[Rfam]
RNA: Small nucleolar RNA U105B
RNA sequence: CCACAUGCGGCUGAUGACAGCACUUCUGCUGAGACGCUGUGAUUGCUCUGUCCAAAGUAAACGCCCUGACGCACUGUGG
Number, nucleotide and partner (000 for none) at each position: 001c000002c000003a000004c000005a000006u073007g072008c071009g070010g021011c020012u019013g018014a000015u000016g000017a000018c013019a012020g011021c010022a000023c000024u000025u000026c000027u000028g000029c050030u000031g048032a047033g046034a000035c000036g000037c000038u000039g000040u000041g000042a000043u000044u000045g000046c033047u032048c031049u000050g029051u000052c000053c000054a000055a000056a000057g000058u000059a000060a000061a000062c000063g000064c000065c000066c000067u000068g000069a000070c009071g008072c007073a006074c000075u000076g000077u000078g000079g000